[Rfam]
RNA sequence: GUUCCCUCAAAGGCUUCCAGUAUUCCCGUAUUCAUUCAUAUAUACCUAGCUAGAAUUGAUUGAAUGCUGGAUGUCUUUGAAGGAAC
Numbered sequence: 001g002u003u004c005c006c007u008c009a010a011a012g013g014c015u016u017c018c019a020g021u022a023u024u025c026c027c028g029u030a031u032u033c034a035u036u037c038a039u040a041u042a043u044a045c046c047u048a049g050c051u052a053g054a055a056u057u058g059a060u061u062g063a064a065u066g067c068u069g070g071a072u073g074u075c076u077u078u079g080a081a082g083g084a085a086c
Base pairs, nucleotide, nucleotide: 001086002085003084004083005082007080008079009078010077011076012075013074014073016071017070018069019068020067021066022065023064024063025062
The record is an 86-nucleotide sequence from Glycine max, which matches "MIR862_2 microRNA precursor family" in Rfam.
Lineage of the source: Eukaryota > Tracheophyta > Magnoliopsida > Fabaceae > Glycine subgen. Soja.
Gene Ontology terms of the family: miRNA-mediated post-transcriptional gene silencing and RISC complex.